This 119-nucleotide sequence belongs to the Rfam family "LOOT RNA". The base pairs follow the family's consensus structure, which is taken from published work. It is annotated as a small RNA.

RNA sequence: UGCCUAAACUAGUAGAAAUACUAGCAUGGCAAAUUAAGUCCUACGAGGAUAAAAAACCCAUCAUAUGGGGUUGUCCUCGUAGGCCACAUCGGGAAACUGGUGUGAAAGACUUAGGUCUU
Numbered sequence: 001u002g003c004c005u006a007a008a009c010u011a012g013u014a015g016a017a018a019u020a021c022u023a024g025c026a027u028g029g030c031a032a033a034u035u036a037a038g039u040c041c042u043a044c045g046a047g048g049a050u051a052a053a054a055a056a057c058c059c060a061u062c063a064u065a066u067g068g069g070g071u072u073g074u075c076c077u078c079g080u081a082g083g084c085c086a087c088a089u090c091g092g093g094a095a096a097c098u099g100g101u102g103u104g105a106a107a108g109a110c111u112u113a114g115g116u117c118u119u
Base pairs, nucleotide, nucleotide: 001031002030003029004028009024010023011022012021013020014019040083041082042081043080044079045078046077047076048075049074050073057069058068059067060066085104086103087102088101089100090099091098092097106119107118108117109116110115